[Rfam]
RNA sequence: AUGCCCUUUUAAGGCUUUAAUUUAAGAAGUUAACAUAGAAGGGUAAAGUAAGUUUUCAUAAAACCCAGUGGAGAGAUUGUGGAACUCUUCUUUGGAUCCUGUCUGGAGUUACAGUU
Numbered sequence: 001a002u003g004c005c006c007u008u009u010u011a012a013g014g015c016u017u018u019a020a021u022u023u024a025a026g027a028a029g030u031u032a033a034c035a036u037a038g039a040a041g042g043g044u045a046a047a048g049u050a051a052g053u054u055u056u057c058a059u060a061a062a063a064c065c066c067a068g069u070g071g072a073g074a075g076a077u078u079g080u081g082g083a084a085c086u087c088u089u090c091u092u093u094g095g096a097u098c099c100u101g102u103c104u105g106g107a108g109u110u111a112c113a114g115u116u
Base pairs, nucleotide, nucleotide: 002045003044004043005042006041007040008039009038010037014034015026052110054108055107056106057105058104065095066094067093068092070090071089073087074086075085077084078083
Shown here is a 116-nucleotide sequence from Erinaceus europaeus, a member of the family "Small nucleolar RNA SNORA26". From the family's description: The snoRNA HBI-6 belong to the H/ACA family of snoRNAs, guiding the pseudouridylation of position U4522 if the 28S rRNA. HBI-6 is the human orthologue of mouse MBI-6 snoRNA. Pairs were carried over by alignment from the consensus structure, which was predicted with RNAalifold. By type it is an H/ACA-box small nucleolar RNA. Gene Ontology terms of the family: RNA processing and nucleolus.